Background: The record is a 298-nucleotide RNA from Lysinibacillus composti, which matches "BsrG" in Rfam. About the family: bsrE, bsrG and bsrH pair through intermolecular interactions with antisense sRNAs. They form type I toxin/antitoxin system that includes an mRNA encoding for a short, toxic peptide (bsrE, bsrG and bsrH) and an antitoxin that is comprised of an antisense RNA. bsrG encodes a 39-amino-acid toxin, and the 180 nucleotide antisense sRNA called SR4 acts as the antitoxin (they overlap by 123 nucleotides). SR4 interaction with the 3'UTR of bsrG RNA promotes bsrG degradation and inhibits its translation. BsrG interferes with cell envelope biosynthesis, causes membrane invaginations and delocalisation of the cell wall synthesis and initiates autolysis. bsrE RNA encodes 30 amino-acid toxin peptide. It scores 79 bits against the family's covariance model. Its family is annotated with autolysis and toxin activity in the Gene Ontology. Rfam classes the family as a small RNA.
[Rfam]
RNA sequence: GUUAUAAUCGUCUAGGUAGCUCAAGGGUGGUAUGCUCACUCCCGUUUUUACGGACCCGAGGACAAGUUGCGAGUCAUGUCGUGUUGUCCGAUUUUGAAAGGGGGUGAUGCUUUGUCAGUGUAUCAGACAUUAAUGUUUACUGUUUCCUUUGCAGCGUUAAUUGUGUCGAUUCUAUCUUUUAGCCAAAAAAAAUAACCCAUCCUUGAGUUGGCGCUCUGAUGGGUUGAUCCUAUUCAUUUGCGAUCCCCUUGAUGGGACCUACGAUUAUAUUAGGCUGCUUGAUGGUGCAACAUCAAGU
Numbered sequence: 001g002u003u004a005u006a007a008u009c010g011u012c013u014a015g016g017u018a019g020c021u022c023a024a025g026g027g028u029g030g031u032a033u034g035c036u037c038a039c040u041c042c043c044g045u046u047u048u049u050a051c052g053g054a055c056c057c058g059a060g061g062a063c064a065a066g067u068u069g070c071g072a073g074u075c076a077u078g079u080c081g082u083g084u085u086g087u088c089c090g091a092u093u094u095u096g097a098a099a100g101g102g103g104g105u106g107a108u109g110c111u112u113u114g115u116c117a118g119u120g121u122a123u124c125a126g127a128c129a130u131u132a133a134u135g136u137u138u139a140c141u142g143u144u145u146c147c148u149u150u151g152c153a154g155c156g157u158u159a160a161u162u163g164u165g166u167c168g169a170u171u172c173u174a175u176c177u178u179u180u181a182g183c184c185a186a187a188a189a190a191a192a193u194a195a196c197c198c199a200u201c202c203u204u205g206a207g208u209u210g211g212c213g214c215u216c217u218g219a220u221g222g223g224u225u226g227a228u229c230c231u232a233u234u235c236a237u238u239u240g241c242g243a244u245c246c247c248c249u250u251g252a253u254g255g256g257a258c259c260u261a262c263g264a265u266u267a268u269a270u271u272a273g274g275c276u277g278c279u280u281g282a283u284g285g286u287g288c289a290a291c292a293u294c295a296a297g298u
Base pairs, nucleotide, nucleotide: 001271003269004268005267007265008264009263011261017243019241020207021206022205023204024203025202026201027200029197030196031195036107037106038105039104040103041102042101043100114176117173118172120170127143128142129141152168217236218235219234244257245256246255247254277298278297279296280295281294282293283292284291